[Rfam]
RNA: SAH (S-adenosyl-L-homocysteine) riboswitch aptamer
RNA sequence: AGAGCCGAGGGGCGCUGCGACGGACCCCGGUCCGCCACGCUCGGCUCGCCUUCCCUUCGGGACAAGGGCGCCUCCUAUCG
Number, nucleotide and partner (000 for none) at each position: 001a000002g047003a046004g045005c044006c043007g042008a041009g000010g000011g000012g000013c000014g000015c000016u000017g000018c000019g000020a000021c034022g033023g032024a031025c030026c000027c000028c000029g000030g025031u024032c023033c022034g021035c000036c000037a000038c000039g000040c000041u008042c007043g006044g005045c004046u003047c002048g000049c000050c000051u000052u000053c000054c000055c000056u000057u000058c000059g000060g000061g000062a000063c000064a000065a000066g000067g000068g000069c000070g000071c000072c000073u000074c000075c000076u000077a000078u000079c000080g000